Rfam assigns this 100-nucleotide sequence from Arthrobacter yangruifuii to the family "ZMP/ZTP riboswitch aptamer (pfl RNA motif)".
NCBI's taxonomy places the organism under Bacteria, Bacillati, Actinomycetota, Actinomycetes, Arthrobacter.

[Rfam]
RNA sequence: GGAAAGCGUCGCGACUGGCGUCAGGUGGAUCACCACCGGGAAGCGGCACGGCCCCCUCGGGGGCCUGGAAGACUCCGGAUCGCACGCCUGGGCCGAGGGU
Numbered sequence: 001g002g003a004a005a006g007c008g009u010c011g012c013g014a015c016u017g018g019c020g021u022c023a024g025g026u027g028g029a030u031c032a033c034c035a036c037c038g039g040g041a042a043g044c045g046g047c048a049c050g051g052c053c054c055c056c057u058c059g060g061g062g063g064c065c066u067g068g069a070a071g072a073c074u075c076c077g078g079a080u081c082g083c084a085c086g087c088c089u090g091g092g093c094c095g096a097g098g099g100u
Base pairs, nucleotide, nucleotide: 006049008047009046010045011044012043015040016039017088018087019086020085021084025036026035027034028033076095077094078093080092081091